[Rfam]
RNA: Vault RNA
RNA sequence: GGGCUGGCCAUAGCUCAGCGGUUCCUUCGACUACAGAGUGAUCAAAUUAUCCUCUCUGAGGCUAGUUCGAGACCCUCGGGCGCUCUCCAGUCCUUCA
Number, nucleotide and partner (000 for none) at each position: 001g000002g092003g091004c090005u089006g088007g087008c000009c000010a000011u000012a000013g081014c080015u079016c078017a000018g077019c000020g075021g074022u000023u000024c000025c000026u071027u070028c069029g068030a067031c000032u000033a000034c000035a000036g000037a000038g000039u000040g000041a000042u000043c000044a000045a000046a000047u000048u000049a000050u000051c000052c000053u000054c000055u000056c000057u000058g000059a000060g000061g000062c000063u000064a000065g000066u000067u030068c029069g028070a027071g026072a000073c000074c021075c020076u000077c018078g016079g015080g014081c013082g000083c000084u000085c000086u000087c007088c006089a005090g004091u003092c002093c000094u000095u000096c000097a000